[Rfam]
RNA sequence: AGCCUUCUUUAUCUGUGCCAAGAUUUCGUCAGAAACCGGGGAAUCAGGACUGAUGAGACUUACAAGAAAAGUGAAGUG
Number, nucleotide and partner (000 for none) at each position: 001a000002g077003c076004c000005u074006u073007c000008u071009u070010u069011a000012u067013c066014u000015g000016u064017g063018c000019c000020a061021a060022g059023a000024u058025u057026u056027c055028g054029u053030c052031a000032g000033a000034a000035a000036c000037c000038g000039g000040g000041g000042a000043a000044u000045c000046a000047g000048g000049a000050c000051u000052g030053a029054u028055g027056a026057g025058a024059c022060u021061u020062a000063c017064a016065a000066g013067a012068a000069a010070a009071g008072u000073g006074a005075a000076g003077u002078g000

Rfam assigns this 78-nucleotide sequence from Schistosoma bovis to the family "mir-3492 microRNA precursor family". A search with the family's covariance model found it, with a score of 64 bits. Taxonomically the source falls in Schistosoma (Eukaryota, Opisthokonta, Metazoa, Trematoda). Rfam links the family to the GO terms miRNA-mediated post-transcriptional gene silencing and RISC complex.